[Rfam]
RNA sequence: GGGAAUGGAUGGAUCCCGGUGGGUUCCGCGGACUUCAAAUCCGUUGUCGGGUGGGUGAUCCGGCCGAGGUAGGUUCGACUCCUACACAUUCCC
Numbered sequence: 001g002g003g004a005a006u007g008g009a010u011g012g013a014u015c016c017c018g019g020u021g022g023g024u025u026c027c028g029c030g031g032a033c034u035u036c037a038a039a040u041c042c043g044u045u046g047u048c049g050g051g052u053g054g055g056u057g058a059u060c061c062g063g064c065c066g067a068g069g070u071a072g073g074u075u076c077g078a079c080u081c082c083u084a085c086a087c088a089u090u091c092c093c
Stems, first nucleotide, its partner, number of pairs: 001093007008085001011026006028044005047067004070084004
RNA: Selenocysteine transfer RNA